Shown here is a 52-nucleotide RNA, a member of the family "S4-Clostridia ribosomal protein leader". The family is grouped with related families in Rfam's "Ribosomal Protein S4 Leader clan". On this family, see Eckert and Weinberg, BMC Microbiol 2020: "Discovery of 20 novel ribosomal leader candidates in bacteria and archaea". It is one of the family's seed sequences.
[Rfam]
RNA sequence: GAAAGGCUGUAUUUCACAUACAGCUGGGUGUCCAUGUUACACCCCAGUUAGA
Numbered sequence: 001g002a003a004a005g006g007c008u009g010u011a012u013u014u015c016a017c018a019u020a021c022a023g024c025u026g027g028g029u030g031u032c033c034a035u036g037u038u039a040c041a042c043c044c045c046a047g048u049u050a051g052a
Stems, first nucleotide, its partner, number of pairs: 005025008026044006